The record is a 90-nucleotide sequence from Endobacterium cereale, which matches "Repression of heat shock gene expression (ROSE) element" in Rfam. This family represents a 5' UTR cis-regulatory element found in heat shock mRNAs and is known as the ROSE (repression of heat shock gene expression) element. The ROSE element is a negative regulator of heat shock gene expression. The secondary structure is thought to be regulated by temperature. This regulation blocks access to the ribosome binding site under normal conditions. During heat shock however, the structure changes freeing the ribosome binding site and allowing expression to occur. Its family is annotated with response to temperature stimulus and regulation of translation in the Gene Ontology. The family's consensus secondary structure is taken from published work. A search with the family's covariance model found it, with a score of 60 bits.
Nucleotides: 090
Stems, first nucleotide, its partner, number of pairs: 001022006008016002032050001034049001036047003051087005057081007065074003
Number, partner (000 for none) and nucleotide at each position: 001022c002021c003020a004019g005018c006017c007000g008016c009015u010000g011000a012000u013000a014000a015009a016008g017006g018005g019004c020003u021002g022001g023000c024000a025000u026000c027000g028000c029000c030000g031000g032050g033000a034049g035000c036047g037046c038045u039000a040000c041000g042000u043000g044000u045038a046037g047036c048000a049034u050032c051087c052086c053085g054084u055083a056000u057081c058080c059079a060078u061077g062076u063075u064000g065074c066073u067072u068000c069000a070000a071000g072067g073066a074065g075063g076062a077061u078060a079059u080058g081057g082000c083055u084054a085053u086052g087051g088000c089000a090000a